RNA sequence: GAAAUCAGCCCGAAAAGUGUCCGUUCUGGACGCCUGCUCGAAAGAGAUAGGGCUGGUUUCAUUU
Numbered sequence: 001g002a003a004a005u006c007a008g009c010c011c012g013a014a015a016a017g018u019g020u021c022c023g024u025u026c027u028g029g030a031c032g033c034c035u036g037c038u039c040g041a042a043a044g045a046g047a048u049a050g051g052g053c054u055g056g057u058u059u060c061a062u063u064u
Base pairs, nucleotide, nucleotide: 001060002059003058004057005056006055007054008053009052010051011050017033018032019031020030021029022028037046038045039044
Dot-bracket structure: (((((((((((.....((((((.....))))))...(((....)))...)))))))))))....
The record is a 64-nucleotide RNA sequence, which matches "DUF3800-IX RNA" in Rfam. It is one of the family's seed sequences. Actinobacteria, Firmicutes (1 example), Nitrospirae, Proteobacteria, Verrucomicrobia (1 example). It is annotated as a small RNA.